[Rfam]
RNA sequence: GCCCUCCAGAUCCCUUUCCCAUCAGAUCUGAAUACCGAUCUCGUGGUCGAAAAAGGAGGAAGAGAAACAUUCAGCCUGGUCUUGGCCUCAUUGCUGGCGCAGCCCUGCUGUGAGGGGGGCCAGUCUGAAGACAGC
Numbered sequence: 001g002c003c004c005u006c007c008a009g010a011u012c013c014c015u016u017u018c019c020c021a022u023c024a025g026a027u028c029u030g031a032a033u034a035c036c037g038a039u040c041u042c043g044u045g046g047u048c049g050a051a052a053a054a055g056g057a058g059g060a061a062g063a064g065a066a067a068c069a070u071u072c073a074g075c076c077u078g079g080u081c082u083u084g085g086c087c088u089c090a091u092u093g094c095u096g097g098c099g100c101a102g103c104c105c106u107g108c109u110g111u112g113a114g115g116g117g118g119g120c121c122a123g124u125c126u127g128a129a130g131a132c133a134g135c
Base pairs, nucleotide, nucleotide: 003059004058005057006056007055019046020045021044023043025040026039027038028037076123077122078121079120080119081118082117
RNA: Small nucleolar RNA SNORA61
Organism: Alectura lathami